[Rfam]
RNA sequence: GGGCAGUGACGUUUAAUUGCACGAAUUGUGAACGAUGGGUCGUCACUUUCAUCUGACAUACGAUGAAAUGAUUGUGCAUCUGAGCUC
Numbered sequence: 001g002g003g004c005a006g007u008g009a010c011g012u013u014u015a016a017u018u019g020c021a022c023g024a025a026u027u028g029u030g031a032a033c034g035a036u037g038g039g040u041c042g043u044c045a046c047u048u049u050c051a052u053c054u055g056a057c058a059u060a061c062g063a064u065g066a067a068a069u070g071a072u073u074g075u076g077c078a079u080c081u082g083a084g085c086u087c
Stems, first nucleotide, its partner, number of pairs: 001087004
The record is an 87-nucleotide RNA from Capsicum baccatum, which matches "small nucleolar RNA snoR114" in Rfam.
By type it is a C/D-box small nucleolar RNA.
Its family is annotated with nucleolus and RNA processing in the Gene Ontology.
A reference for the family is Chen and Wu (2009), "Mining small RNA sequencing data: a new approach to identify small nucleolar RNAs in Arabidopsis", Nucleic Acids Res.
It scores 49 bits against the family's covariance model.